This 57-nucleotide RNA from Oharaeibacter diazotrophicus belongs to the Rfam family "terC RNA". The match comes from Rfam's covariance-model search (59 bits). The base pairs follow the family's consensus structure, which is taken from published work. Taxonomically the source falls in Oharaeibacter (Bacteria, Pseudomonadati, Pseudomonadota, Pleomorphomonadaceae).
RNA sequence: ACACCAGGCCGGGCCCCUCUGGCAGUCCGCACCGGGCUGCGAUGUCGGACUGGAUCC
Numbered sequence: 001a002c003a004c005c006a007g008g009c010c011g012g013g014c015c016c017c018u019c020u021g022g023c024a025g026u027c028c029g030c031a032c033c034g035g036g037c038u039g040c041g042a043u044g045u046c047g048g049a050c051u052g053g054a055u056c057c
Stems, first nucleotide, its partner, number of pairs: 006051002009048004022040007